RNA sequence: AGGUUAAUGCUAAUCGUGAUAGGGGUUGUUCAUCACCAGACACCUAGCAUAUUAGCAUUAGCUU
Numbered sequence: 001a002g003g004u005u006a007a008u009g010c011u012a013a014u015c016g017u018g019a020u021a022g023g024g025g026u027u028g029u030u031c032a033u034c035a036c037c038a039g040a041c042a043c044c045u046a047g048c049a050u051a052u053u054a055g056c057a058u059u060a061g062c063u064u
Stems, first nucleotide, its partner, number of pairs: 004061011020046004025041003
Dot-bracket structure: ...(((((((((((.....((((.(((...........))).))))....)))))))))))...
Shown here is a 64-nucleotide RNA from Parambassis ranga, a member of the family "mir-155 microRNA precursor family". Rfam links the family to the GO terms miRNA-mediated post-transcriptional gene silencing and RISC complex. Taxonomically the source falls in Parambassis (Eukaryota, Neoteleostei, Acanthomorphata, Percomorphaceae). It scores 64 bits against the family's covariance model.